[Rfam]
The record is a 79-nucleotide sequence from Desulfonema ishimotonii, which matches "c-di-GMP-I-GGC riboswitch aptamer" in Rfam.
RNA sequence: AAAGAAAACGCCAAACCCGUUGUGAGGCGGGGACGGAAAGCCACGGGUCUUAAAAUAAAAGACAGCCGGGUUGCCUUUU
Numbered sequence: 001a002a003a004g005a006a007a008a009c010g011c012c013a014a015a016c017c018c019g020u021u022g023u024g025a026g027g028c029g030g031g032g033a034c035g036g037a038a039a040g041c042c043a044c045g046g047g048u049c050u051u052a053a054a055a056u057a058a059a060a061g062a063c064a065g066c067c068g069g070g071u072u073g074c075c076u077u078u079u
Base pairs, nucleotide, nucleotide: 001079003076004075011036012035016031017030018029019028020027021026034065039072040071041070042069044068045067046066047063048062049061
A reference for the family is Smith et al. (2009), "Structural basis of ligand binding by a c-di-GMP riboswitch", Nat Struct Mol Biol. Its Rfam clan is "c-di-GMP_I riboswitch clan".